[Rfam]
RNA sequence: CGGAGAUGCCCUGUCUUCCUUCGCUGAUCUGUGCCUUGAGGGAGCCAAUCAGCGCAGGUAGCAGGGCAUUUCCCACAGUUCACUCGUCGUGACAAGCGCGUACCUCGGUGGAUUCAG
Number, nucleotide and partner (000 for none) at each position: 001c000002g073003g072004a071005g070006a069007u068008g067009c066010c065011c064012u063013g062014u000015c061016u060017u000018c000019c057020u056021u000022c054023g053024c000025u051026g050027a049028u048029c000030u000031g000032u044033g000034c042035c000036u000037u000038g000039a000040g000041g000042g034043a000044g032045c000046c000047a000048a028049u027050c026051a025052g000053c023054g022055c000056a020057g019058g000059u000060a016061g015062c013063a012064g011065g010066g009067c008068a007069u006070u005071u004072c003073c002074c000075a000076c000077a000078g000079u000080u000081c000082a000083c000084u000085c000086g000087u000088c000089g000090u000091g000092a000093c000094a000095a000096g000097c000098g115099c000100g113101u112102a000103c110104c000105u000106c000107g000108g000109u000110g103111g000112a101113u100114u000115c098116a000117g000
RNA: Actinobacteria sRNA Ms_IGR-7